This 76-nucleotide RNA sequence from Cronobacter sakazakii belongs to the Rfam family "tpke11". The sequence is in the family's curated seed alignment. The source organism's lineage runs through Bacteria, Gammaproteobacteria, Enterobacterales, Enterobacteriaceae and Cronobacter sakazakii. In Yersinia located in ICR upstream dnaJ (chaperone)gene. Has temperature responsive RNA structure. The literature on the family includes a 2016 paper in Proc Natl Acad Sci U S A by Righetti et al., "Temperature-responsive in vitro RNA structurome of Yersinia pseudotuberculosis". Pairs were carried over by alignment from the consensus structure, which was predicted with WAR.

RNA sequence: CAGGGUAGAUAACACUGGCACGGGCGUAGGAGUUUCUCCACGCCCGUGCACGCAUGUCAGGGGCAGAUAAAACAUG
Numbered sequence: 001c002a003g004g005g006u007a008g009a010u011a012a013c014a015c016u017g018g019c020a021c022g023g024g025c026g027u028a029g030g031a032g033u034u035u036c037u038c039c040a041c042g043c044c045c046g047u048g049c050a051c052g053c054a055u056g057u058c059a060g061g062g063g064c065a066g067a068u069a070a071a072a073c074a075u076g
Stems, first nucleotide, its partner, number of pairs: 004016002018049009029039003